[Rfam]
RNA: Mammalian CPEB3 ribozyme
Nucleotides: 077
Stems, first nucleotide, its partner, number of pairs: 013045001015044004021077001023075005028040001030038001049066007
Number, partner (000 for none) and nucleotide at each position: 001000g002000g003000u004000u005000g006000c007000a008000a009000a010000u011000u012000u013045g014000a015044g016043g017042c018041c019000a020000u021077a022000a023075c024074a025073g026072a027071a028040g029000a030038g031000c032000u033000u034000a035000c036000a037000g038030u039000a040028u041018g042017g043016c044015c045013c046000u047000g048000u049066c050065a051064g052063a053062u054061u055060u056000c057000a058000a059000u060055g061054a062053a063052u064051c065050u066049g067000c068000a069000a070000a071027u072026u073025c074024u075023g076000c077021u